[Rfam]
RNA sequence: CGAUGCCGCACGGGGUGCCCCACCAGGGGCUGAGAACACACCCGGAGAACCUGAUCGAGCUCGUACUCGCGGAGGGAUGCCACCGAUGACCGAC
Numbered sequence: 001c002g003a004u005g006c007c008g009c010a011c012g013g014g015g016u017g018c019c020c021c022a023c024c025a026g027g028g029g030c031u032g033a034g035a036a037c038a039c040a041c042c043c044g045g046a047g048a049a050c051c052u053g054a055u056c057g058a059g060c061u062c063g064u065a066c067u068c069g070c071g072g073a074g075g076g077a078u079g080c081c082a083c084c085g086a087u088g089a090c091c092g093a094c
Stems, first nucleotide, its partner, number of pairs: 008080003011044004016038001017030005050075003056069004
This 94-nucleotide sequence from Brachybacterium endophyticum belongs to the Rfam family "TPP riboswitch aptamer (THI element)". The base pairs follow the family's consensus structure, which is taken from published work.